[Rfam]
RNA sequence: CUUGAUCAGACAACUUGGGAAUUCAGAUCAUCCUCGGGAAGGUGCGCCCAAUCACGCCGCCUCGCCGAGGCC
Numbered sequence: 001c002u003u004g005a006u007c008a009g010a011c012a013a014c015u016u017g018g019g020a021a022u023u024c025a026g027a028u029c030a031u032c033c034u035c036g037g038g039a040a041g042g043u044g045c046g047c048c049c050a051a052u053c054a055c056g057c058c059g060c061c062u063c064g065c066c067g068a069g070g071c072c
Stems, first nucleotide, its partner, number of pairs: 003030005008023002038053002043050002
RNA: Actinobacteria sRNA Ms_AS-8